Shown here is an 85-nucleotide RNA sequence from Paenibacillus flagellatus, a member of the family "c-di-GMP-I riboswitch aptamer". The family's consensus secondary structure is taken from published work. GEMM was predicted in a large-scale screen for bacterial structured RNA regulatory elements.
RNA sequence: AAUUGAAAAAGGCAAACUUAUUGAAAGAUAAGGACGCAAAGCCACGGGUCUAAGGCGGCAACGCGAUGACGGCCGGGUUGCCAAA
Numbered sequence: 001a002a003u004u005g006a007a008a009a010a011g012g013c014a015a016a017c018u019u020a021u022u023g024a025a026a027g028a029u030a031a032g033g034a035c036g037c038a039a040a041g042c043c044a045c046g047g048g049u050c051u052a053a054g055g056c057g058g059c060a061a062c063g064c065g066a067u068g069a070c071g072g073c074c075g076g077g078u079u080g081c082c083a084a085a
Stems, first nucleotide, its partner, number of pairs: 012037002017032006040079004045075003048070003055064003